Annotation
The family of this 75-nucleotide RNA from Marinobacterium nitratireducens is "Xanthomonas sRNA sX9". It is annotated as a small RNA. It scores 46 bits against the family's covariance model. Rfam 15.1 lists 309 matches to the family in 52 species.
RNA sequence: AUGUAUAACCCAUACAUUGCGGUUCCUGUGCUCCGUGCGCCUUGCCUCUACGCCGCUCGCUACGGUUUUCGAGGU
Numbered sequence: 001a002u003g004u005a006u007a008a009c010c011c012a013u014a015c016a017u018u019g020c021g022g023u024u025c026c027u028g029u030g031c032u033c034c035g036u037g038c039g040c041c042u043u044g045c046c047u048c049u050a051c052g053c054c055g056c057u058c059g060c061u062a063c064g065g066u067u068u069u070c071g072a073g074g075u
Stems, first nucleotide, its partner, number of pairs: 002016005020035003025030001046073003050069001052067001